[Rfam]
RNA sequence: UGCCCCACCUCGGGGUGCCUGACAGGGCUGAGAUGCAAUGAUGCGAACCCGUAGAACCUGAUCCGGUUAAAACCGGCGGAGGGAAGGUCGGGCGGAUGCGC
Number, nucleotide and partner (000 for none) at each position: 001u000002g000003c000004c000005c000006c000007a088008c087009c086010u085011c051012g050013g049014g048015g000016u045017g028018c027019c026020u025021g000022a000023c000024a000025g020026g019027g018028c017029u000030g000031a000032g000033a000034u000035g044036c043037a042038a000039u000040g000041a000042u037043g036044c035045g016046a000047a000048c014049c013050c012051g011052u000053a000054g000055a000056a000057c082058c081059u080060g000061a000062u000063c076064c075065g074066g073067u000068u000069a000070a000071a000072a000073c066074c065075g064076g063077c000078g000079g000080a059081g058082g057083g000084a000085a010086g009087g008088u007089c000090g000091g000092g000093c000094g000095g000096a000097u000098g000099c000100g000101c000